[Rfam]
RNA sequence: CUGCAUGUUAAAAAAAAAAAUCAUUCUGCUCCUCAUUCCCUUAAGGAGCAUGAACGUAUAUAUAACAUGCUACAAAAAACAAGGAGUCUUCAGGGCUGCCAGUCUUGCAGUAAAGACUGAGUGGUAGUAUAUGUCUCCUACAUCU
Numbered sequence: 001c002u003g004c005a006u007g008u009u010a011a012a013a014a015a016a017a018a019a020a021u022c023a024u025u026c027u028g029c030u031c032c033u034c035a036u037u038c039c040c041u042u043a044a045g046g047a048g049c050a051u052g053a054a055c056g057u058a059u060a061u062a063u064a065a066c067a068u069g070c071u072a073c074a075a076a077a078a079a080c081a082a083g084g085a086g087u088c089u090u091c092a093g094g095g096c097u098g099c100c101a102g103u104c105u106u107g108c109a110g111u112a113a114a115g116a117c118u119g120a121g122u123g124g125u126a127g128u129a130u131a132u133g134u135c136u137c138c139u140a141c142a143u144c145u
Stems, first nucleotide, its partner, number of pairs: 003070006025052001027050006083138004095125002099121001100119007
Description
Shown here is a 145-nucleotide sequence from Apteryx owenii, a member of the family "Small nucleolar RNA U109". The family's RNA type in Rfam is H/ACA-box small nucleolar RNA. For this family Rfam cites "A novel experimental approach for systematic identification of box H/ACA snoRNAs from eukaryotes" (Gu et al., Nucleic Acids Res, 2005). The family has 26 seed sequences and 1,405 matches in Rfam 15.1.